The family of this 48-nucleotide sequence is "eL15-Euryarchaeota ribosomal protein leader". Rfam classes the family as a cis-regulatory leader. The sequence is in the family's curated seed alignment.

[Rfam]
RNA sequence: ACGGGAUACGUCCCGGAAAGGAAUGUGGCGGCAACGCUGAACCUGAGG
Numbered sequence: 001a002c003g004g005g006a007u008a009c010g011u012c013c014c015g016g017a018a019a020g021g022a023a024u025g026u027g028g029c030g031g032c033a034a035c036g037c038u039g040a041a042c043c044u045g046a047g048g
Stems, first nucleotide, its partner, number of pairs: 002015004019044003027038004